[Rfam]
RNA: Small nucleolar RNA SNORA58
RNA sequence: AGGCAUACCAGUAGACCUUGUCUGACUGUGUUCAUAGCCAGGCAGGGGGGACAGUGUAUGCAAGAGUUAAUUUGGAGUUCUUGCCAGCUGUAGCCAGCUGAAUCAGUAGCUGGGUAAAUUGCUGCACUCCAACAUGA
Dot-bracket structure: ..((((((.......(((((((((..............)))))))))........))))))............((((.(...((.........(((((..........))))).......))...))))).......